Rfam assigns this 85-nucleotide RNA from Alicyclobacillus tolerans to the family "Group II catalytic intron D1-D4-1". Rfam 15.1 lists 2,508 matches to the family in 1,144 species. NCBI's taxonomy places the organism under Bacteria, Bacillota, Bacilli, Caryophanales, Alicyclobacillus.
[Rfam]
RNA sequence: UAACCAUCGUCGCAAGGCGAUGCUGAACGGCAGAAGUCAGCAGAGGUCAUAGUACCUGCAAAGAGACGUCUAAGCAGGGAAGGAC
Numbered sequence: 001u002a003a004c005c006a007u008c009g010u011c012g013c014a015a016g017g018c019g020a021u022g023c024u025g026a027a028c029g030g031c032a033g034a035a036g037u038c039a040g041c042a043g044a045g046g047u048c049a050u051a052g053u054a055c056c057u058g059c060a061a062a063g064a065g066a067c068g069u070c071u072a073a074g075c076a077g078g079g080a081a082g083g084a085c
Stems, first nucleotide, its partner, number of pairs: 001025002005022007037044002046085003055078005
A reference for the family is Bonen and Vogel (2001), "The ins and outs of group II introns", Trends Genet.